[Rfam]
RNA sequence: GUUCCCUGUGAUGUUUGUAAGUCUGAUGACCAUGCUAAUUCUGAUCAAUCUAUGAAAGGGUCGGGAAUU
Numbered sequence: 001g002u003u004c005c006c007u008g009u010g011a012u013g014u015u016u017g018u019a020a021g022u023c024u025g026a027u028g029a030c031c032a033u034g035c036u037a038a039u040u041c042u043g044a045u046c047a048a049u050c051u052a053u054g055a056a057a058g059g060g061u062c063g064g065g066a067a068u069u
Base pairs, nucleotide, nucleotide: 001068002067003066004065005064

Small nucleolar RNA snoR53Y: a 69-nucleotide sequence from Camellia sinensis. The literature on the family includes a 2001 paper in RNA by Brown et al., "Multiple snoRNA gene clusters from Arabidopsis". Gene Ontology terms of the family: nucleolus and RNA processing. Its Rfam clan is "snoR53 clan".